Shown here is an 83-nucleotide sequence from Oceanobacillus picturae, a member of the family "c-di-GMP-I riboswitch aptamer".

[Rfam]
RNA sequence: CUCAGAAAAAGGCAUACUCAUCGAAAGACGGGGACGCAAAAUCACAGAUCUACGGCAUAUGCUAGGAUGGCUGGGUUAUCUGG
Numbered sequence: 001c002u003c004a005g006a007a008a009a010a011g012g013c014a015u016a017c018u019c020a021u022c023g024a025a026a027g028a029c030g031g032g033g034a035c036g037c038a039a040a041a042u043c044a045c046a047g048a049u050c051u052a053c054g055g056c057a058u059a060u061g062c063u064a065g066g067a068u069g070g071c072u073g074g075g076u077u078a079u080c081u082g083g
Stems, first nucleotide, its partner, number of pairs: 012037002017032003021028002040077004045073003048068003055062002
Pairs were carried over by alignment from the consensus structure, which is taken from published work. It scores 62 bits against the family's covariance model.